RNA sequence: GCGCAUGUUUAUCCAAGAGCUGUGACUCUCUGCAGUAGCUGCAGCUCUCCAACAACAUGCGAGAGCAAUGGGAAGGUCUUUGACUGCUGGGCCUCUCCUGCCUCUUGCUGUCACUCACCCCUCCGACAGAU
Numbered sequence: 001g002c003g004c005a006u007g008u009u010u011a012u013c014c015a016a017g018a019g020c021u022g023u024g025a026c027u028c029u030c031u032g033c034a035g036u037a038g039c040u041g042c043a044g045c046u047c048u049c050c051a052a053c054a055a056c057a058u059g060c061g062a063g064a065g066c067a068a069u070g071g072g073a074a075g076g077u078c079u080u081u082g083a084c085u086g087c088u089g090g091g092c093c094u095c096u097c098c099u100g101c102c103u104c105u106u107g108c109u110g111u112c113a114c115u116c117a118c119c120c121c122u123c124c125g126a127c128a129g130a131u
Stems, first nucleotide, its partner, number of pairs: 013044001018040006071124003075120002086111002089104001090102002

A member of the RNA family "Small nucleolar RNA SNORA44" from Rhinopomastus cyanomelas, 131 nucleotides long. Rfam's curators write: ACA44 is a member of the H/ACA class of snoRNA that guide the sites of modification of uridines to pseudouridines. For this family Rfam cites "RNomics: an experimental approach that identifies 201 candidates for novel, small, non-messenger RNAs in mouse" (Huttenhofer et al., EMBO J, 2001). By type it is an H/ACA-box small nucleolar RNA. A search with the family's covariance model found it, with a score of 66 bits.